[Rfam]
RNA sequence: CCAAUCUCGGAAUGAAUCUGGGGGAUACGCGUCGUAACCAUUCAAGCUGAUUGUGAUACGACGUAGGGUAGGUACUGGUUAUGCCAAUAAUCAGUAGACGGGAUACUGAUGCCUGGACAGGCAUAUUUAUGGGAAACCCAACA
Numbered sequence: 001c002c003a004a005u006c007u008c009g010g011a012a013u014g015a016a017u018c019u020g021g022g023g024g025a026u027a028c029g030c031g032u033c034g035u036a037a038c039c040a041u042u043c044a045a046g047c048u049g050a051u052u053g054u055g056a057u058a059c060g061a062c063g064u065a066g067g068g069u070a071g072g073u074a075c076u077g078g079u080u081a082u083g084c085c086a087a088u089a090a091u092c093a094g095u096a097g098a099c100g101g102g103a104u105a106c107u108g109a110u111g112c113c114u115g116g117a118c119a120g121g122c123a124u125a126u127u128u129a130u131g132g133g134a135a136a137c138c139c140a141a142c143a
Base pairs, nucleotide, nucleotide: 006022007021008020009019010018011017029064030063031062032061033060034059035058036057039053040052073096074095075094076093077092078091079090080089081088082087110123111122112121113120114119
Dot-bracket structure: .....((((((.....))))))......((((((((..((...........))...))))))))........((((((((((....)))))))))).............(((((....)))))....................

About this RNA: DABA-DC-AT RNA: a 143-nucleotide RNA from Vibrio maritimus. The base pairs follow the family's consensus structure, which is taken from published work. Taxonomically the source falls in Vibrio (Bacteria, Gammaproteobacteria, Vibrionales, Vibrionaceae). A search with the family's covariance model found it, with a score of 141 bits. By type it is a cis-regulatory element.